[Rfam]
RNA sequence: AACGUGCUCCGGGGUCGGUGAGAAUCCGAACCGGCGGUGACAGUCCGCGAGCGUGAUCCUCCGCGAGGAGGGGAUCGCCGAUCCGGUGGAACUCCGGGACCGACGGUGAUGCGACGCAGGUCGCGAGUCCGGAUGGGAGGCGCACGAG
Numbered sequence: 001a002a003c004g005u006g007c008u009c010c011g012g013g014g015u016c017g018g019u020g021a022g023a024a025u026c027c028g029a030a031c032c033g034g035c036g037g038u039g040a041c042a043g044u045c046c047g048c049g050a051g052c053g054u055g056a057u058c059c060u061c062c063g064c065g066a067g068g069a070g071g072g073g074a075u076c077g078c079c080g081a082u083c084c085g086g087u088g089g090a091a092c093u094c095c096g097g098g099a100c101c102g103a104c105g106g107u108g109a110u111g112c113g114a115c116g117c118a119g120g121u122c123g124c125g126a127g128u129c130c131g132g133a134u135g136g137g138a139g140g141c142g143c144a145c146g147a148g
Stems, first nucleotide, its partner, number of pairs: 003146005009140002016028003032102002034048004043100002051078003082098005104131003
Dot-bracket structure: ..(((((.((.....(((.......)))...((((((.....[[))))..(((......................)))...(((((.......)))))]])).(((......................))).......)).)))))..